[Rfam]
The family of this 122-nucleotide sequence from Salvelinus namaycush is "Small nucleolar RNA SNORA65".
RNA sequence: CCCGCCACUUUGCCAGUCUUUGAGUGACUGAGUAUAGUCCAGUGGUGGCUAAGAUGGACCCAGCUUUAGGAAACAGGGCUGCCCAGAAAGUGGGAAACUGUGCCAAAAGGCCUGGAACAAUG
Dot-bracket structure: ....(((((........((((....))...))........)))))..............((((((((.((...((..(...(((.......)))...)))..))..)))).)))).......

For this family Rfam cites "RNomics: an experimental approach that identifies 201 candidates for novel, small, non-messenger RNAs in mouse" (Huttenhofer et al., EMBO J, 2001).
Rfam classes the family as an H/ACA-box small nucleolar RNA.
Rfam links the family to the GO terms nucleolus and RNA processing.
A search with the family's covariance model found it, with a score of 89 bits.